[Rfam]
RNA sequence: UCAUUAUGCUAGGGGAGCCUUUGGCUGAGACGGUACUAAUUUGUACGGACCCUCAUGACUUGAACCGGGUAAUACCGGCGUAAGGAAGCACACCAAAGCAGCC
Numbered sequence: 001u002c003a004u005u006a007u008g009c010u011a012g013g014g015g016a017g018c019c020u021u022u023g024g025c026u027g028a029g030a031c032g033g034u035a036c037u038a039a040u041u042u043g044u045a046c047g048g049a050c051c052c053u054c055a056u057g058a059c060u061u062g063a064a065c066c067g068g069g070u071a072a073u074a075c076c077g078g079c080g081u082a083a084g085g086a087a088g089c090a091c092a093c094c095a096a097a098g099c100a101g102c103c
Stems, first nucleotide, its partner, number of pairs: 007090004011053004017025003033046004059084004065078004
Rfam assigns this 103-nucleotide RNA from Lachnotalea glycerini to the family "TPP riboswitch aptamer (THI element)".
Pairs were carried over by alignment from the consensus structure, which is taken from published work.
Gene Ontology term of the family: thiamine pyrophosphate binding.